Background: The record is a 135-nucleotide RNA sequence from Agrococcus casei, which matches "ALIL pseudoknot" in Rfam. The literature on the family includes a 2008 paper in J Biol Chem by Mazauric et al., "Apical loop-internal loop RNA pseudoknots: a new type of stimulator of -1 translational frameshifting in bacteria". It scores 56 bits against the family's covariance model. It is annotated as a cis-regulatory element.
RNA sequence: CGCGUCUUUCUUCGGGGCGGAGCUCGACCGCCACUACCGGAAGUAGCCGCGUUCAUCGACGCGAACAACGACGACGUCGUGGACGGUCGCCGGCUCGGAGUCGAGCUCAUCUGCAGGAUGCUGCAGGUGGCUCCG
Dot-bracket structure: ...............(((((.......)))))...............................................................(((((......((.(((((((....))))))).)))))))